Notes:
Shown here is an 81-nucleotide RNA sequence from Adiantum capillus-veneris, a member of the family "Small nucleolar RNA J33". A reference for the family is Chen et al. (2003), "The high diversity of snoRNAs in plants: identification and comparative study of 120 snoRNA genes from Oryza sativa", Nucleic Acids Res. The organism belongs to Adiantum, within Eukaryota. The base pairs follow the family's consensus structure.

RNA sequence: CAGUAAAGGGAAUGAUGUAUUACUGGCGAGCAUUAAAGCUGCAAGCAUAUCUUGACAUCGCCUCAGAUCAAGGUAUUACUC
Numbered sequence: 001c002a003g004u005a006a007a008g009g010g011a012a013u014g015a016u017g018u019a020u021u022a023c024u025g026g027c028g029a030g031c032a033u034u035a036a037a038g039c040u041g042c043a044a045g046c047a048u049a050u051c052u053u054g055a056c057a058u059c060g061c062c063u064c065a066g067a068u069c070a071a072g073g074u075a076u077u078a079c080u081c
Base pairs, nucleotide, nucleotide: 002080003079004078005077006076
Dot-bracket structure: .(((((.....................................................................))))).